Rfam assigns this 107-nucleotide sequence from Phyllobacterium zundukense to the family "Rhizobiales sRNA Atu_At1". A reference for the family is Wilms et al. (2012), "Deep sequencing uncovers numerous small RNAs on all four replicons of the plant pathogen Agrobacterium tumefaciens", RNA Biol. The base pairs follow the family's consensus structure, which was predicted with CMfinder.
RNA sequence: AUGUGGGCCGUGUCAACCGGACAUGAUGGCAUGACGGACAGGAGAGUUUAUCCGGUUUCCGAUCCUGGCCAACGAAACGGCAGGCGAGCGUCUAUCCCAUCCGGCCG
Number, nucleotide and partner (000 for none) at each position: 001a000002u000003g000004u000005g000006g106007g105008c104009c103010g000011u023012g022013u021014c020015a000016a000017c000018c000019g000020g014021a013022c012023a011024u000025g101026a100027u099028g097029g096030c000031a000032u000033g092034a091035c090036g089037g000038a000039c067040a066041g065042g064043a063044g000045a000046g000047u000048u000049u000050a000051u000052c000053c000054g000055g000056u000057u000058u000059c000060c000061g000062a000063u043064c042065c041066u040067g039068g081069c080070c079071a000072a000073c000074g000075a000076a000077a000078c000079g070080g069081c068082a000083g000084g000085c000086g000087a000088g000089c036090g035091u034092c033093u000094a000095u000096c029097c028098c000099a027100u026101c025102c000103g009104g008105c007106c006107g000